[Rfam]
RNA sequence: CUGUGGUGCAUUGUAGUUGCAUUGCAUUUCAAGCUGAGUCAGUGCAAUGGAGCUGCUCUGCAACACAG
Numbered sequence: 001c002u003g004u005g006g007u008g009c010a011u012u013g014u015a016g017u018u019g020c021a022u023u024g025c026a027u028u029u030c031a032a033g034c035u036g037a038g039u040c041a042g043u044g045c046a047a048u049g050g051a052g053c054u055g056c057u058c059u060g061c062a063a064c065a066c067a068g
Stems, first nucleotide, its partner, number of pairs: 001068004006064001007062004013056004021048007
A member of the RNA family "mir-33 microRNA precursor family" from Pleuronectes platessa, 68 nucleotides long. The family's consensus secondary structure was predicted with PFOLD. It scores 51 bits against the family's covariance model. Its family is annotated with RISC complex and gene silencing by miRNA in the Gene Ontology. Rfam 15.1 lists 1,467 matches to the family in 815 species.